[Rfam]
RNA sequence: UCACGUGCUAUGGAUUUCUCUGUGAAUCACUAUAUCAAAUCUAGUGUGGUAGUGGUUUACAAAGUAAUUCAUAGUGCUUCA
Number, nucleotide and partner (000 for none) at each position: 001u000002c000003a079004c000005g077006u076007g075008c074009u073010a072011u071012g070013g069014a068015u067016u066017u000018c064019u063020c000021u061022g060023u059024g058025a057026a056027u055028c054029a053030c052031u051032a050033u049034a000035u000036c046037a000038a000039a000040u000041c000042u000043a000044g000045u000046g036047u000048g000049g033050u032051a031052g030053u029054g028055g027056u026057u025058u024059a023060c022061a021062a000063a019064g018065u000066a016067a015068u014069u013070c012071a011072u010073a009074g008075u007076g006077c005078u000079u003080c000081a000

About this RNA: Shown here is an 81-nucleotide sequence from Mus musculus, a member of the family "mir-876 microRNA precursor family". On this family, see Ahn et al., Mol Hum Reprod 2010: "MicroRNA transcriptome in the newborn mouse ovaries determined by massive parallel sequencing". Pairs were carried over by alignment from the consensus structure, which was predicted with RNAalifold. Rfam's curators put it in the seed alignment. The family has 10 seed sequences and 132 matches in Rfam 15.1.